[Rfam]
RNA: mir-172 microRNA precursor family
Organism: Trifolium medium
RNA sequence: UUAAUGGCUGAUGCAGCAUCAUCAAGAUUCUCACUUCAAAAGAUGGAUUAGCAUGAGAGAACUUUCCACUACAUCAUUCAUAUGUGAAUCUUGAUGAUGCUACAUCUGCAAAUAA
Numbered sequence: 001u002u003a004a005u006g007g008c009u010g011a012u013g014c015a016g017c018a019u020c021a022u023c024a025a026g027a028u029u030c031u032c033a034c035u036u037c038a039a040a041a042g043a044u045g046g047a048u049u050a051g052c053a054u055g056a057g058a059g060a061a062c063u064u065u066c067c068a069c070u071a072c073a074u075c076a077u078u079c080a081u082a083u084g085u086g087a088a089u090c091u092u093g094a095u096g097a098u099g100c101u102a103c104a105u106c107u108g109c110a111a112a113u114a115a
Stems, first nucleotide, its partner, number of pairs: 010106004015101016032084002